[Rfam]
RNA sequence: UCCGAUAUGGUGUAGUGGUCAACAUUCGGCACUCUCAAGCGUGAGUAGUUGCUGGGCCCGGGGUUCGAUUCCCCGUAUCGGAA
Numbered sequence: 001u002c003c004g005a006u007a008u009g010g011u012g013u014a015g016u017g018g019u020c021a022a023c024a025u026u027c028g029g030c031a032c033u034c035u036c037a038a039g040c041g042u043g044a045g046u047a048g049u050u051g052c053u054g055g056g057c058c059c060g061g062g063g064u065u066c067g068a069u070u071c072c073c074c075g076u077a078u079c080g081g082a083a
Stems, first nucleotide, its partner, number of pairs: 001082007010025004027054005059075005
The family of this 83-nucleotide RNA sequence from Magnaporthiopsis poae is "tRNA". The base pairs follow the family's consensus structure, which is taken from published work. Transfer RNA (tRNA) molecules are approximately 80 nucleotides in length. Their secondary structure includes four short double-helical elements and three loops (D, anti-codon, and T loops). A search with the family's covariance model found it, with a score of 48 bits. NCBI's taxonomy places the organism under Eukaryota, saccharomyceta, sordariomyceta, Sordariomycetes, Magnaporthiopsis poae.